The family of this 257-nucleotide part of an RNA from uncultured marine crenarchaeote SAT1000-49-D2 is "Archaeal large subunit ribosomal RNA". Lineage of the source: Archaea > Thermoproteati > Nitrososphaerota > Nitrososphaeria > Nitrosopumilales.
RNA sequence: GAGCUUAUUGUCAUGGCAAGUCUAAGCCCUUAAAGGUGAAGGCGAAGGGAAACCGAGUUCUCGCAACUUUUGUGAGGAGAAGCGUGUGAAAGUGCGUUGAGUCAUGGCGGUAAGGCUAGAAGCCAGUCGAUCUAUUCCUGAGCAAGCUGAAGGUGGGCGAAAGCCCGCUGGAAGGCUGUAGCAGUUCUGACGUGCAAAUCGUUUGUGUGACUUGGGAAUAGGGGUCAAGAACCAAUCUAGACUGGCGAUCGCUAGUU
Numbered sequence: 001g002a003g004c005u006u007a008u009u010g011u012c013a014u015g016g017c018a019a020g021u022c023u024a025a026g027c028c029c030u031u032a033a034a035g036g037u038g039a040a041g042g043c044g045a046a047g048g049g050a051a052a053c054c055g056a057g058u059u060c061u062c063g064c065a066a067c068u069u070u071u072g073u074g075a076g077g078a079g080a081a082g083c084g085u086g087u088g089a090a091a092g093u094g095c096g097u098u099g100a101g102u103c104a105u106g107g108c109g110g111u112a113a114g115g116c117u118a119g120a121a122g123c124c125a126g127u128c129g130a131u132c133u134a135u136u137c138c139u140g141a142g143c144a145a146g147c148u149g150a151a152g153g154u155g156g157g158c159g160a161a162a163g164c165c166c167g168c169u170g171g172a173a174g175g176c177u178g179u180a181g182c183a184g185u186u187c188u189g190a191c192g193u194g195c196a197a198a199u200c201g202u203u204u205g206u207g208u209g210a211c212u213u214g215g216g217a218a219u220a221g222g223g224g225u226c227a228a229g230a231a232c233c234a235a236u237c238u239a240g241a242c243u244g245g246c247g248a249u250c251g252c253u254a255g256u257u
Stems, first nucleotide, its partner, number of pairs: 005113013020043004026037003047054002059080004066073002083096004116255002119252001123245006132221011143209001145177004152169007181206004187201001189200002223233003